[Rfam]
RNA: Small nucleolar RNA SNORD73
Organism: Hipposideros armiger
RNA sequence: AGUGAAUGAUGACAAAAUGUUUCAGUCCCAGAUGAUAUAUACUGAUAUAUCGUUACAUUUCUGACAUU
Numbered sequence: 001a002g003u004g005a006a007u008g009a010u011g012a013c014a015a016a017a018u019g020u021u022u023c024a025g026u027c028c029c030a031g032a033u034g035a036u037a038u039a040u041a042c043u044g045a046u047a048u049a050u051c052g053u054u055a056c057a058u059u060u061c062u063g064a065c066a067u068u
Base pairs, nucleotide, nucleotide: 001068002067003066004065